[Rfam]
Nucleotides: 189
Base pairs, nucleotide, nucleotide: 002039003038005036006035007034045150046149047148048147055067056066057065058064071141072140073139074138075137078096079095080094081092082091083090098131099130100129162182163181164180165179166178167177168176169175
Number, partner (000 for none) and nucleotide at each position: 001000a002039u003038a004000a005036u006035g007034a008000u009000a010000a011000g012000a013000g014000a015000u016000a017000c018000g019000c020000u021000c022000a023000c024000c025000a026000c027000u028000g029000a030000u031000a032000u033000c034007u035006c036005a037000a038003u039002a040000u041000c042000c043000a044000a045150c046149g047148c048147g049000a050000u051000a052000a053000a054000u055067g056066u057065c058064u059000u060000g061000g062000g063000a064058g065057g066056a067055u068000a069000c070000a071141g072140a073139u074138c075137u076000c077000u078096g079095g080094c081092g082091c083090g084000u085000u086000a087000a088000c089000c090083c091082g092081c093000a094080g095079c096078c097000g098131c099130u100129c101000u102000c103000a104000u105000c106000u107000a108000g109000c110000a111000a112000a113000a114000a115000u116000c117000a118000a119000a120000a121000a122000g123000c124000a125000g126000u127000a128000a129100g130099a131098g132000c133000a134000a135000u136000g137075g138074g139073a140072u141071c142000a143000c144000c145000a146000u147048c148047g149046c150045g151000u152000a153000c154000c155000c156000u157000a158000u159000u160000c161000a162182a163181a164180c165179a166178a167177g168176g169175c170000u171000u172000c173000u174000g175169g176168c177167c178166u179165u180164g181163u182162u183000u184000u185000u186000u187000u188000u189000u

Source information: The family of this 189-nucleotide sequence from Cohaesibacter gelatinilyticus is "Alphaproteobacterial sRNA ar9". The match comes from Rfam's covariance-model search (58 bits). The literature on the family includes a 2012 paper in RNA Biol by del Val et al., "A survey of sRNA families in alpha-proteobacteria". The organism belongs to Cohaesibacter, within Bacteria. Pairs were carried over by alignment from the consensus structure.